[Rfam]
RNA: Y RNA
Organism: Pongo abelii
RNA sequence: GGCUGGUCUCAAGGUAGUGAGAUACCUCAAUUGAUUUUUCAGUCAGUUGCAGAUCGAAUUAUUUGUCCUACUCUUCCCUUCUCAUUACCGUACUUGACUAGACUUUA
Numbered sequence: 001g002g003c004u005g006g007u008c009u010c011a012a013g014g015u016a017g018u019g020a021g022a023u024a025c026c027u028c029a030a031u032u033g034a035u036u037u038u039u040c041a042g043u044c045a046g047u048u049g050c051a052g053a054u055c056g057a058a059u060u061a062u063u064u065g066u067c068c069u070a071c072u073c074u075u076c077c078c079u080u081c082u083c084a085u086u087a088c089c090g091u092a093c094u095u096g097a098c099u100a101g102a103c104u105u106u107a
Stems, first nucleotide, its partner, number of pairs: 001103001003101006011094001014091002016086006042072001045069002
Dot-bracket structure: (.((((((..(..((((((((....................(..((.....................))..)........))))))...))..).)))))).)....